[Rfam]
RNA sequence: GCCGAGCUGGGUAACUCUAGCUUGUAACCCAAGUGGGGGCAUCGAGGUGAUGGAACAUGGCUAUGGCUGUGCUUGUUCGGGAUGGUGGCUGCACCAUGUUGGCGUGCCUACUCCAAGUUGAGAGUUGAGGCGUGGUGCUUGGGCUAAGGCGGAGGUGUCAUGACUCCUAGACAAGAGGGCAAAGCGUGAGGCUGGUUUCACAGAGCAGCGAACACCUCUGGCUCCUAACAGUGGAGGGAUCACAUGCCACUGCACUUUCAUCCCACUGUGGCCUAGCUAGCCAAGCUACUUGAACCAUCACUUUU
Numbered sequence: 001g002c003c004g005a006g007c008u009g010g011g012u013a014a015c016u017c018u019a020g021c022u023u024g025u026a027a028c029c030c031a032a033g034u035g036g037g038g039g040c041a042u043c044g045a046g047g048u049g050a051u052g053g054a055a056c057a058u059g060g061c062u063a064u065g066g067c068u069g070u071g072c073u074u075g076u077u078c079g080g081g082a083u084g085g086u087g088g089c090u091g092c093a094c095c096a097u098g099u100u101g102g103c104g105u106g107c108c109u110a111c112u113c114c115a116a117g118u119u120g121a122g123a124g125u126u127g128a129g130g131c132g133u134g135g136u137g138c139u140u141g142g143g144c145u146a147a148g149g150c151g152g153a154g155g156u157g158u159c160a161u162g163a164c165u166c167c168u169a170g171a172c173a174a175g176a177g178g179g180c181a182a183a184g185c186g187u188g189a190g191g192c193u194g195g196u197u198u199c200a201c202a203g204a205g206c207a208g209c210g211a212a213c214a215c216c217u218c219u220g221g222c223u224c225c226u227a228a229c230a231g232u233g234g235a236g237g238g239a240u241c242a243c244a245u246g247c248c249a250c251u252g253c254a255c256u257u258u259c260a261u262c263c264c265a266c267u268g269u270g271g272c273c274u275a276g277c278u279a280g281c282c283a284a285g286c287u288a289c290u291u292g293a294a295c296c297a298u299c300a301c302u303u304u305u
Stems, first nucleotide, its partner, number of pairs: 001040003004023008028037003044304010056292002059289001062285001064283004071277003075273001077271002079264007087256001090254002100249007108238002111236005117229004122224004127166003131162010143150002174219005185210003192203003